[Rfam]
RNA sequence: GGUCAUGAGUGCCAGCGCCAAGCCCCGGCUCGCUGGCCGGCAACCCUCCAUCCGCGGUGGGGUGCCCCGGGUGAGGACCUGGCCGUCCGGCAAAGGGCCGGAUGGCAAGCGCGGCCC
Number, nucleotide and partner (000 for none) at each position: 001g079002g078003u077004c076005a000006u000007g000008a000009g038010u000011g037012c036013c035014a034015g033016c032017g000018c000019c000020a000021a030022g029023c000024c000025c000026c000027g000028g000029c022030u021031c000032g016033c015034u014035g013036g012037c011038c009039g066040g065041c064042a000043a000044c062045c061046c060047u000048c057049c056050a000051u000052c000053c000054g000055c000056g049057g048058u000059g000060g046061g045062g044063u000064g041065c040066c039067c000068c000069g000070g000071g000072u000073g000074a000075g000076g004077a003078c002079c001080u000081g000082g106083c105084c104085g103086u102087c101088c100089g099090g098091c097092a000093a000094a000095g000096g000097g091098c090099c089100g088101g087102a086103u085104g084105g083106c082107a000108a000109g000110c000111g000112c000113g000114g000115c000116c000117c000
Rfam assigns this 117-nucleotide RNA sequence from Pseudarthrobacter enclensis to the family "SAM (S-adenosyl methionine) riboswitch aptamer". The base pairs follow the family's consensus structure, which is taken from published work. A reference for the family is Weinberg et al. (2008), "The aptamer core of SAM-IV riboswitches mimics the ligand-binding site of SAM-I riboswitches", RNA. The family is grouped with related families in Rfam's "SAM clan". SAM-IV is a mRNA element that regulates gene expression via direct sensing of S-adenosylmethionine (SAM or AdoMet). SAM-IV riboswitches share conserved nucleotide positions with the previously described SAM-I riboswitches sequence analysis and molecular recognition experiments suggest that SAM-I and SAM-IV riboswitches share similar ligand binding sites, but have different scaffolds. Taxonomically the source falls in Pseudarthrobacter (Bacteria, Bacillati, Actinomycetota, Micrococcales).